[Rfam]
Small nucleolar RNA SNORA23: a 184-nucleotide sequence from Erinaceus europaeus. On this family, see Huttenhofer et al., EMBO J 2001: "RNomics: an experimental approach that identifies 201 candidates for novel, small, non-messenger RNAs in mouse". The members of this family belong to the H/ACA class of snoRNAs which are thought to guide the sites of modification of uridines to pseudouridines. This family includes human snoRNA ACA23 (SNORA23) and mouse snoMBI-1. It is annotated as an H/ACA-box small nucleolar RNA.
RNA sequence: AUGGUCAUGUGUGCACAGUUUGCAUCUGUGUCUGGUAGCAGUGUCUGUCUGUGUUUUGCAUUCAGAUUUUGUUAUCCACACAAAAGCCAUGCAGCCAAAGAGUAAUUUGAGGUCAUAGUACUGGCUCUGUGCUGUCCCUUUGGACACAUUCACCACAGGCCAGCCUCCAAAUCCCCACACAUAG
Numbered sequence: 001a002u003g004g005u006c007a008u009g010u011g012u013g014c015a016c017a018g019u020u021u022g023c024a025u026c027u028g029u030g031u032c033u034g035g036u037a038g039c040a041g042u043g044u045c046u047g048u049c050u051g052u053g054u055u056u057u058g059c060a061u062u063c064a065g066a067u068u069u070u071g072u073u074a075u076c077c078a079c080a081c082a083a084a085a086g087c088c089a090u091g092c093a094g095c096c097a098a099a100g101a102g103u104a105a106u107u108u109g110a111g112g113u114c115a116u117a118g119u120a121c122u123g124g125c126u127c128u129g130u131g132c133u134g135u136c137c138c139u140u141u142g143g144a145c146a147c148a149u150u151c152a153c154c155a156c157a158g159g160c161c162a163g164c165c166u167c168c169a170a171a172u173c174c175c176c177a178c179a180c181a182u183a184g
Stems, first nucleotide, its partner, number of pairs: 013092003029082003033078003036074006043067005050060003108177002111174002121163006128157004133148003138143001